Record summary:
Small nucleolar RNA R44/J54/Z268 family: a 101-nucleotide sequence from Aegilops tauschii. Rfam links the family to the GO terms RNA processing and nucleolus. The family's RNA type in Rfam is C/D-box small nucleolar RNA. The base pairs follow the family's consensus structure, which was predicted with PFOLD. The match comes from Rfam's covariance-model search (57 bits).
[Rfam]
RNA sequence: CUAGCACGUGAUGACAAGCAAGACAGGGAAUCUGCAGCGCUCCCGGCUUCAAGUCGGGUGGCGUGAAUGAUGCAUCUGUCUAGGGGAAUCUCUGAUGCUAA
Numbered sequence: 001c002u003a004g005c006a007c008g009u010g011a012u013g014a015c016a017a018g019c020a021a022g023a024c025a026g027g028g029a030a031u032c033u034g035c036a037g038c039g040c041u042c043c044c045g046g047c048u049u050c051a052a053g054u055c056g057g058g059u060g061g062c063g064u065g066a067a068u069g070a071u072g073c074a075u076c077u078g079u080c081u082a083g084g085g086g087a088a089u090c091u092c093u094g095a096u097g098c099u100a101a
Stems, first nucleotide, its partner, number of pairs: 002100005
Dot-bracket structure: .(((((.........................................................................................))))).